[Rfam]
RNA sequence: GGACGGCGAUCGCCGAAUCCCGAGGGCGAGAGCCCGAGGGGACCGGGGACCCACCUUGUCCCAUGGGGUGAAUCGGACGGCCUCGCCGAGAGGCGGUCCGUAGGAGACCUUCCUGCUCCGAACCCGUCAGCUAACCCGGCAGGCGAGAAGGAAGGAAAG
Numbered sequence: 001g002g003a004c005g006g007c008g009a010u011c012g013c014c015g016a017a018u019c020c021c022g023a024g025g026g027c028g029a030g031a032g033c034c035c036g037a038g039g040g041g042a043c044c045g046g047g048g049a050c051c052c053a054c055c056u057u058g059u060c061c062c063a064u065g066g067g068g069u070g071a072a073u074c075g076g077a078c079g080g081c082c083u084c085g086c087c088g089a090g091a092g093g094c095g096g097u098c099c100g101u102a103g104g105a106g107a108c109c110u111u112c113c114u115g116c117u118c119c120g121a122a123c124c125c126g127u128c129a130g131c132u133a134a135c136c137c138g139g140c141a142g143g144c145g146a147g148a149a150g151g152a153a154g155g156a157a158a159g
Stems, first nucleotide, its partner, number of pairs: 011145004018041003043139005052065002066125003074100004103119004
Rfam assigns this 159-nucleotide RNA sequence from Streptomyces albus to the family "c-di-AMP riboswitch aptamer (ydaO/yuaA leader)". Taxonomically the source falls in Streptomyces (Bacteria, Bacillati, Actinomycetes, Streptomycetaceae). The match comes from Rfam's covariance-model search (80 bits). Pairs were carried over by alignment from the consensus structure.